RNA sequence: UGGAUAUAUAGAAUCUCAUGCAGAUAUUUCGAACCAAGCUUGCUUGAGUGAGAAAUAUCUAUAUGAGAUUCAGGCAACCAUGAGGAAGUAGCUCGAUAGAGCGGAUUCCGAAUGGUUGUAGGAUUGCGAGAGUAACGCAGUUACGUAGCAAUCCGUAUAUACA
Numbered sequence: 001u002g003g004a005u006a007u008a009u010a011g012a013a014u015c016u017c018a019u020g021c022a023g024a025u026a027u028u029u030c031g032a033a034c035c036a037a038g039c040u041u042g043c044u045u046g047a048g049u050g051a052g053a054a055a056u057a058u059c060u061a062u063a064u065g066a067g068a069u070u071c072a073g074g075c076a077a078c079c080a081u082g083a084g085g086a087a088g089u090a091g092c093u094c095g096a097u098a099g100a101g102c103g104g105a106u107u108c109c110g111a112a113u114g115g116u117u118g119u120a121g122g123a124u125u126g127c128g129a130g131a132g133u134a135a136c137g138c139a140g141u142u143a144c145g146u147a148g149c150a151a152u153c154c155g156u157a158u159a160u161a162c163a
Stems, first nucleotide, its partner, number of pairs: 001163002004160004012070004018064003022060009033049001035046004074119008084109004091102004121154007132144004

This 163-nucleotide RNA sequence from Lachnospiraceae bacterium XBB2008 belongs to the Rfam family "Clostridiales-1 RNA". The base pairs follow the family's consensus structure, which is taken from published work. Rfam 15.1 lists 1,172 matches to the family in 137 species.